[Rfam]
A member of the RNA family "TPP riboswitch aptamer (THI element)" from Vagococcus salmoninarum, 104 nucleotides long. Pairs were carried over by alignment from the consensus structure, which is taken from published work. Vitamin B(1) in its active form thiamin pyrophosphate (TPP) is an essential coenzyme that is synthesised by coupling of pyrimidine and thiazole moieties in bacteria. The previously detected thiamin-regulatory element, thi box was extended, resulting in a new, highly conserved RNA secondary structure, the THI element, which is widely distributed in eubacteria and also occurs in some archaea. Analysis of operon structures identified a large number of new candidate thiamin-regulated genes, mostly transporters, in various prokaryotic organisms. The THI element is a riboswitch that directly binds to TPP to regulate gene expression through a variety of mechanisms in archaea, bacteria and eukaryotes. through a variety of mechanisms in archaea, bacteria and eukaryotes. Tandem TPP riboswitches have been reported where both TPP riboswitches respond independently to TPP. The structure of TPP riboswitch has been reported for Escherichia coli and Arabidopsis thaliana.
RNA sequence: ACCAUCACAAAGGGGUGCCUUAACGGGCUGAGAUUGAGCAAUAGCUUGGACCCUUCGAACCUGAUUUCGUUAACACGAGCGUAGGGAUUGUGAUGGGGUAGAAA
Numbered sequence: 001a002c003c004a005u006c007a008c009a010a011a012g013g014g015g016u017g018c019c020u021u022a023a024c025g026g027g028c029u030g031a032g033a034u035u036g037a038g039c040a041a042u043a044g045c046u047u048g049g050a051c052c053c054u055u056c057g058a059a060c061c062u063g064a065u066u067u068c069g070u071u072a073a074c075a076c077g078a079g080c081g082u083a084g085g086g087a088u089u090g091u092g093a094u095g096g097g098g099u100a101g102a103a104a
Base pairs, nucleotide, nucleotide: 006092007091008090009089010088011054012053013052014051016048017028018027019026020025036047037046038045039044060085061084062083063082066079067078068077069076